[Rfam]
RNA sequence: GGGGAUACACUUAGAGUCCCCAGCGUGAGAGUGUUAAUAGUGGAGGUCUUUGGCCGGACCUCACGGUUAGUGAAUC
Numbered sequence: 001g002g003g004g005a006u007a008c009a010c011u012u013a014g015a016g017u018c019c020c021c022a023g024c025g026u027g028a029g030a031g032u033g034u035u036a037a038u039a040g041u042g043g044a045g046g047u048c049u050u051u052g053g054c055c056g057g058a059c060c061u062c063a064c065g066g067u068u069a070g071u072g073a074a075u076c
Base pairs, nucleotide, nucleotide: 001021002020003019004018005017006016034070035069036068037067038066040064041063042062044061045060046059047058048057049056
The family of this 76-nucleotide sequence is "L13-Bacteroidia ribosomal protein leader". The literature on the family includes a 2020 paper in BMC Microbiol by Eckert and Weinberg, "Discovery of 20 novel ribosomal leader candidates in bacteria and archaea".